[Rfam]
RNA sequence: CAAUCUUUGUUGGUUAAUGCUACACCAACUCGCUAAAGAUAAUCCAGCGGAGUAAAAAAUGAGCGAUAAAAUUAUUCACCUGACAGAC
Numbered sequence: 001c002a003a004u005c006u007u008u009g010u011u012g013g014u015u016a017a018u019g020c021u022a023c024a025c026c027a028a029c030u031c032g033c034u035a036a037a038g039a040u041a042a043u044c045c046a047g048c049g050g051a052g053u054a055a056a057a058a059a060u061g062a063g064c065g066a067u068a069a070a071a072u073u074a075u076u077c078a079c080c081u082g083a084c085a086g087a088c
Base pairs, nucleotide, nucleotide: 008068009067010066011065012064014062015061016060021054022053023052025050026049030047032045072087073086076083077082

The family of this 88-nucleotide RNA from Candidatus Symbiopectobacterium sp. Dall1.0 is "TrxA 5' UTR thermometer". Pairs were carried over by alignment from the consensus structure. By type it is an RNA thermoregulator. Involved in protection against oxidative stress. The organism belongs to Symbiopectobacterium, within Bacteria. Gene Ontology terms of the family: regulation of translation and response to temperature stimulus.